[Rfam]
RNA: tpke11
Organism: Yersinia bercovieri
RNA sequence: GCUGGAAACCAGCACGGGCGUCGAGGAAACUCUACGCCCGUGCACGCAUGUUAAGGGUAGGAAAAUAAGA
Dot-bracket structure: ..(((...)))(((((((((..(((....)))..)))))))))...........................